[Rfam]
RNA: Plant signal recognition particle RNA
Organism: Ipomoea nil
RNA sequence: GUUGGGCUUGGUAGCGCAAGCUUGUAACCCGAGUGGGAGCAUUAAGAUGGUGGGACGGUUGGCCAUUCCUUGAAGGCUGGGCCUUGGUUGUUAUCUACUGGCUUGCCCGUUCCAAGUGGUGAGUUGUGCUGUGGAUUCUCUGCGAAGGCAGAGGCUACUCGGUCCUUAGAUUGGAGGGCACUGCGUGAGGCUGGUUUCACAGAGCAGCGAAAACCUCUUCCUCUUUGCAGUGGAAGGAUAACGGGCCGGUGCAUCCUCUACCCACUUGCGCCUGAUAGGCUGGCCAAAUUGAACCACCAUCUUU
Numbered sequence: 001g002u003u004g005g006g007c008u009u010g011g012u013a014g015c016g017c018a019a020g021c022u023u024g025u026a027a028c029c030c031g032a033g034u035g036g037g038a039g040c041a042u043u044a045a046g047a048u049g050g051u052g053g054g055a056c057g058g059u060u061g062g063c064c065a066u067u068c069c070u071u072g073a074a075g076g077c078u079g080g081g082c083c084u085u086g087g088u089u090g091u092u093a094u095c096u097a098c099u100g101g102c103u104u105g106c107c108c109g110u111u112c113c114a115a116g117u118g119g120u121g122a123g124u125u126g127u128g129c130u131g132u133g134g135a136u137u138c139u140c141u142g143c144g145a146a147g148g149c150a151g152a153g154g155c156u157a158c159u160c161g162g163u164c165c166u167u168a169g170a171u172u173g174g175a176g177g178g179c180a181c182u183g184c185g186u187g188a189g190g191c192u193g194g195u196u197u198c199a200c201a202g203a204g205c206a207g208c209g210a211a212a213a214c215c216u217c218u219u220c221c222u223c224u225u226u227g228c229a230g231u232g233g234a235a236g237g238a239u240a241a242c243g244g245g246c247c248g249g250u251g252c253a254u255c256c257u258c259u260a261c262c263c264a265c266u267u268g269c270g271c272c273u274g275a276u277a278g279g280c281u282g283g284c285c286a287a288a289u290u291g292a293a294c295c296a297c298c299a300u301c302u303u304u
Base pairs, nucleotide, nucleotide: 001040002039003038004023005022006021007020008019009018010017028037029036030035044303045302046301047300048299049298050297051296052295053294056291057290059288060287062284063283064282065281067279069278070277074273075272076271077270079263080262081261086256089253090252092251093250098249099248100247101246102245103244104243105242107237108236110235111234112233113232114231116228117227118226119225121223122222123221126165128163129162130161131160133158135156137154138153139152140151141150142149143148173218174217175216176215177214182211184209185208186207191202192201193200